This 84-nucleotide RNA from Albula goreensis belongs to the Rfam family "Small nucleolar RNA SNORD103/SNORD85".
[Rfam]
RNA sequence: CUUGGCAGUGAUGACACACUUGCCCUCACUGAGAGCUUGUCUCCAUAAUGAGAACCUCUUUGUACUCAUCUUCUCUGAGCCAGG
Numbered sequence: 001c002u003u004g005g006c007a008g009u010g011a012u013g014a015c016a017c018a019c020u021u022g023c024c025c026u027c028a029c030u031g032a033g034a035g036c037u038u039g040u041c042u043c044c045a046u047a048a049u050g051a052g053a054a055c056c057u058c059u060u061u062g063u064a065c066u067c068a069u070c071u072u073c074u075c076u077g078a079g080c081c082a083g084g
Stems, first nucleotide, its partner, number of pairs: 001084006
The literature on the family includes a 2001 paper in EMBO J by Huttenhofer et al., "RNomics: an experimental approach that identifies 201 candidates for novel, small, non-messenger RNAs in mouse".
The base pairs follow the family's consensus structure.
The family has 41 seed sequences and 1,349 matches in Rfam 15.1.
Taxonomically the source falls in Albula (Eukaryota, Elopocephalai, Albuliformes, Albulidae).
It is annotated as a C/D-box small nucleolar RNA.